RNA sequence: CCCCUUGCGCCCUGCCCCUGCGGCCCCUAUAUUCCCUCUUGCCCGGGGCGACCCGGACUAUGGCGAUAAACGCACCUGUAAUAGACGGCUCGGACCCGGGGGCGGUACCCGGCGGCUCCACCAACACCCCGGCAUUGCGGGAGGACGGGGCCGAAACAGGAUCGACGGACGUUCAAAGAGGCCAGCUUUCGCUCGGUGAGGUACCACCGUUAUCGGUCCAAGAUCACAGUUGCCAAUGACAACCGUGCUCCGGUGGCGCUGGCUGCGUAAGCGGCUCGCAAUACCAAACACAAGCCCCUGCGCUUAGCCGCGCAGGGCGGGGUCCGCAGGCACCUGGCAACAGAAGCCUGCACU
Numbered sequence: 001c002c003c004c005u006u007g008c009g010c011c012c013u014g015c016c017c018c019u020g021c022g023g024c025c026c027c028u029a030u031a032u033u034c035c036c037u038c039u040u041g042c043c044c045g046g047g048g049c050g051a052c053c054c055g056g057a058c059u060a061u062g063g064c065g066a067u068a069a070a071c072g073c074a075c076c077u078g079u080a081a082u083a084g085a086c087g088g089c090u091c092g093g094a095c096c097c098g099g100g101g102g103c104g105g106u107a108c109c110c111g112g113c114g115g116c117u118c119c120a121c122c123a124a125c126a127c128c129c130c131g132g133c134a135u136u137g138c139g140g141g142a143g144g145a146c147g148g149g150g151c152c153g154a155a156a157c158a159g160g161a162u163c164g165a166c167g168g169a170c171g172u173u174c175a176a177a178g179a180g181g182c183c184a185g186c187u188u189u190c191g192c193u194c195g196g197u198g199a200g201g202u203a204c205c206a207c208c209g210u211u212a213u214c215g216g217u218c219c220a221a222g223a224u225c226a227c228a229g230u231u232g233c234c235a236a237u238g239a240c241a242a243c244c245g246u247g248c249u250c251c252g253g254u255g256g257c258g259c260u261g262g263c264u265g266c267g268u269a270a271g272c273g274g275c276u277c278g279c280a281a282u283a284c285c286a287a288a289c290a291c292a293a294g295c296c297c298c299u300g301c302g303c304u305u306a307g308c309c310g311c312g313c314a315g316g317g318c319g320g321g322g323u324c325c326g327c328a329g330g331c332a333c334c335u336g337g338c339a340a341c342a343g344a345a346g347c348c349u350g351c352a353c354u
Stems, first nucleotide, its partner, number of pairs: 041058001043056005062193005072186002075181003086171002090168003096112005113153007194209004200219002203217003320335004326351006
RNA: Alphaproteobacteria transfer-messenger RNA